[Rfam]
RNA: Actinobacteria sRNA Ms_IGR-5
Organism: Streptomyces zagrosensis
RNA sequence: ACACGAGAAGGGAGGUGGUUCGGCCGAUGUACAAGAUCCGGACGCGUGAGGUGACUGCGGGCUAGUCGUCCGCUGUCGCAUCCGUCUUCCCCCCGCCUUCGCUGCGCAGAGCGCGGUGGGGGAAGCAGCGCAAUGCCGGACGCGCACGCGAGAGCUGUGUGCGGCUGGCCAAUCCCGAGCAGUCACCCGACCCGCGAGUCGCCGGUUCGUCCGACCGGCCCCGGUGCGUCACCAGGCGCACCGGGAAGCGACUCGCGGGUCGCUUUUU
Numbered sequence: 001a002c003a004c005g006a007g008a009a010g011g012g013a014g015g016u017g018g019u020u021c022g023g024c025c026g027a028u029g030u031a032c033a034a035g036a037u038c039c040g041g042a043c044g045c046g047u048g049a050g051g052u053g054a055c056u057g058c059g060g061g062c063u064a065g066u067c068g069u070c071c072g073c074u075g076u077c078g079c080a081u082c083c084g085u086c087u088u089c090c091c092c093c094c095g096c097c098u099u100c101g102c103u104g105c106g107c108a109g110a111g112c113g114c115g116g117u118g119g120g121g122g123a124a125g126c127a128g129c130g131c132a133a134u135g136c137c138g139g140a141c142g143c144g145c146a147c148g149c150g151a152g153a154g155c156u157g158u159g160u161g162c163g164g165c166u167g168g169c170c171a172a173u174c175c176c177g178a179g180c181a182g183u184c185a186c187c188c189g190a191c192c193c194g195c196g197a198g199u200c201g202c203c204g205g206u207u208c209g210u211c212c213g214a215c216c217g218g219c220c221c222c223g224g225u226g227c228g229u230c231a232c233c234a235g236g237c238g239c240a241c242c243g244g245g246a247a248g249c250g251a252c253u254c255g256c257g258g259g260u261c262g263c264u265u266u267u268u
Stems, first nucleotide, its partner, number of pairs: 015058005060170007068162002071159001073157001075155001188262013201219006